[Rfam]
RNA: RNase MRP
RNA sequence: GUUCGUGCCGAAGGCCUGUGUCCUAGGCUACACACGGAGGACUAGCUCCUUGUUUGUGCCUAGGGGAAAGUCCCCAGACCUCAGGCAAAGAGUGCCACAUGAGCAUGCAUGUAGACUUUCCCUGCUCCUCAUGGUUAAGCCUGCCAAGAAGCUAUCCUGCCCCAUGCUGGGGGCAGCCAAGUGGCCUGUGGUGAGGUAUCAUCCAUCAUCAGGCUGUGUGCCUCAGCACACACCGAUCUCACUCCAUCAUCAGGCUGUGUGCCUCAGCACACACCGAUCUCACAAGGCUCACUCUCAGCACACA
Numbered sequence: 001g002u003u004c005g006u007g008c009c010g011a012a013g014g015c016c017u018g019u020g021u022c023c024u025a026g027g028c029u030a031c032a033c034a035c036g037g038a039g040g041a042c043u044a045g046c047u048c049c050u051u052g053u054u055u056g057u058g059c060c061u062a063g064g065g066g067a068a069a070g071u072c073c074c075c076a077g078a079c080c081u082c083a084g085g086c087a088a089a090g091a092g093u094g095c096c097a098c099a100u101g102a103g104c105a106u107g108c109a110u111g112u113a114g115a116c117u118u119u120c121c122c123u124g125c126u127c128c129u130c131a132u133g134g135u136u137a138a139g140c141c142u143g144c145c146a147a148g149a150a151g152c153u154a155u156c157c158u159g160c161c162c163c164a165u166g167c168u169g170g171g172g173g174c175a176g177c178c179a180a181g182u183g184g185c186c187u188g189u190g191g192u193g194a195g196g197u198a199u200c201a202u203c204c205a206u207c208a209u210c211a212g213g214c215u216g217u218g219u220g221c222c223u224c225a226g227c228a229c230a231c232a233c234c235g236a237u238c239u240c241a242c243u244c245c246a247u248c249a250u251c252a253g254g255c256u257g258u259g260u261g262c263c264u265c266a267g268c269a270c271a272c273a274c275c276g277a278u279c280u281c282a283c284a285a286g287g288c289u290c291a292c293u294c295u296c297a298g299c300a301c302a303c304a
Base pairs, nucleotide, nucleotide: 002304005301006300007299008298010296011295014255015254016253017252018251022064023063024062025061026060027059028058037051038050039049040048041047069289070288072287073286084096085095086094087093097112098111099110100109101108114200115199120196121195123193124192125191130188131187141184142183143182144181166177167176168175169174257274258273259272260271261270